[Rfam]
This 92-nucleotide RNA from Bombyx mori belongs to the Rfam family "mir-2807 microRNA precursor family". The organism belongs to Bombyx, within Eukaryota. The base pairs follow the family's consensus structure, which was predicted with RNAalifold. A reference for the family is Liu et al. (2010), "MicroRNAs of Bombyx mori identified by Solexa sequencing", BMC Genomics.

RNA sequence: UUAAUGUAAAAUUGUAUGGAGUUGGAAUGUUUGCUUAUGCUUGUAGCUAGUUAGCUAGGGGCGCUGUUCCAACUGCAUACAAAUUUGAGUUA
Numbered sequence: 001u002u003a004a005u006g007u008a009a010a011a012u013u014g015u016a017u018g019g020a021g022u023u024g025g026a027a028u029g030u031u032u033g034c035u036u037a038u039g040c041u042u043g044u045a046g047c048u049a050g051u052u053a054g055c056u057a058g059g060g061g062c063g064c065u066g067u068u069c070c071a072a073c074u075g076c077a078u079a080c081a082a083a084u085u086u087g088a089g090u091u092a
Base pairs, nucleotide, nucleotide: 008086009085010084012082013081014080015079016078018076020074021073022072023071024070025069026068027067028066029065034060035059036058039055040054